[Rfam]
This 104-nucleotide sequence from Pleuronectes platessa belongs to the Rfam family "mir-454 microRNA precursor family". The source organism's lineage runs through Eukaryota, Teleostomi, Osteoglossocephalai, Acanthomorphata and Pleuronectes. For this family Rfam cites "A microRNA catalog of the developing chicken embryo identified by a deep sequencing approach" (Glazov et al., Genome Res, 2008).
RNA sequence: UCACCGUCUCCUCGCAGACGAGACCCUAUCAAUAUUGCCUCUGCUUUCGCGAGAGUUAACAGAGUAGUGCAAUAUUGCUUAUAGGGUCUCGGCUCCGAGGGCUG
Numbered sequence: 001u002c003a004c005c006g007u008c009u010c011c012u013c014g015c016a017g018a019c020g021a022g023a024c025c026c027u028a029u030c031a032a033u034a035u036u037g038c039c040u041c042u043g044c045u046u047u048c049g050c051g052a053g054a055g056u057u058a059a060c061a062g063a064g065u066a067g068u069g070c071a072a073u074a075u076u077g078c079u080u081a082u083a084g085g086g087u088c089u090c091g092g093c094u095c096c097g098a099g100g101g102c103u104g
Stems, first nucleotide, its partner, number of pairs: 020090010030077009041067004045062001